[Rfam]
The family of this 70-nucleotide RNA sequence from Molossus molossus is "Small nucleolar RNA U2-30".
RNA sequence: GAGCAAUGAUGAAAAGCUUUAAUCACUGACCUUUGUAAUUAUGAAGGUUUCUACACUUGAUCUGAGCUCA
Number, nucleotide and partner (000 for none) at each position: 001g069002a068003g067004c066005a000006a000007u000008g000009a000010u000011g000012a000013a034014a033015a032016g031017c000018u029019u028020u000021a000022a000023u000024c000025a000026c000027u000028g019029a018030c000031c016032u015033u014034u013035g000036u000037a000038a000039u000040u000041a000042u000043g000044a000045a000046g000047g000048u000049u000050u000051c000052u000053a000054c000055a000056c000057u000058u000059g000060a000061u000062c000063u000064g000065a000066g004067c003068u002069c001070a000
It is annotated as a C/D-box small nucleolar RNA. Lineage of the source: Eukaryota > Teleostomi > Sarcopterygii > Chiroptera > Molossus. The family's consensus secondary structure is taken from published work. For this family Rfam cites "Guide RNAs with 5' Caps and Novel Box C/D snoRNA-like Domains for Modification of snRNAs in Metazoa" (Tycowski et al., Curr Biol, 2004).